[Rfam]
RNA sequence: CUCUUAUGGAGAGUGGCGGAGGGACUGGCCCAAUGAUGCCCGGCAACCGGCCUUAAUGGUUAUGGUGCCAAUUCCUGCAGCAAUUUGCUGAGAAAUGAGAG
Number, nucleotide and partner (000 for none) at each position: 001c101002u100003c099004u098005u097006a096007u095008g000009g000010a000011g000012a000013g041014u000015g040016g039017c038018g000019g000020a000021g031022g030023g029024a000025c077026u000027g075028g074029c023030c022031c021032a000033a000034u000035g000036a000037u000038g017039c016040c015041c013042g069043g068044c067045a066046a000047c065048c064049g061050g060051c059052c058053u000054u000055a000056a000057u000058g052059g051060u050061u049062a000063u000064g048065g047066u045067g044068c043069c042070a000071a000072u000073u093074c028075c027076u000077g025078c090079a089080g088081c087082a086083a000084u000085u000086u082087g081088c080089u079090g078091a000092g000093a073094a000095a007096u006097g005098a004099g003100a002101g001